[Rfam]
RNA sequence: UUUUUCUACAAGAUGAACCAUUUUCGGAUGUAAAGCAGUCUACGGACGCGAAAUCCGAGAGCGCAAAAACCAUGUGGAUUUUUCCGUUGCCUUCCUUCUGAUCCCUGUU
Number, nucleotide and partner (000 for none) at each position: 001u000002u000003u000004u107005u000006c000007u000008a000009c000010a000011a000012g000013a000014u000015g000016a000017a000018c000019c000020a000021u000022u000023u000024u000025c086026g085027g084028a083029u000030g000031u000032a000033a000034a000035g000036c000037a000038g000039u000040c000041u000042a000043c000044g000045g000046a000047c000048g000049c000050g000051a000052a000053a000054u000055c000056c000057g000058a000059g000060a000061g000062c000063g000064c000065a000066a000067a000068a000069a000070c000071c000072a000073u000074g000075u000076g000077g000078a000079u000080u000081u000082u000083u028084c027085c026086g025087u000088u000089g000090c000091c000092u000093u000094c000095c000096u000097u000098c000099u000100g000101a000102u000103c000104c000105c000106u000107g004108u000109u000
About this RNA: Rfam assigns this 109-nucleotide RNA from Pholiota conissans to the family "Small nucleolar RNA Z13/snr52". The base pairs follow the family's consensus structure, which was predicted with PFOLD. Lineage of the source: Eukaryota > Agaricomycetes > Agaricales > Agaricineae > Pholiota. Gene Ontology terms of the family: RNA processing and nucleolus.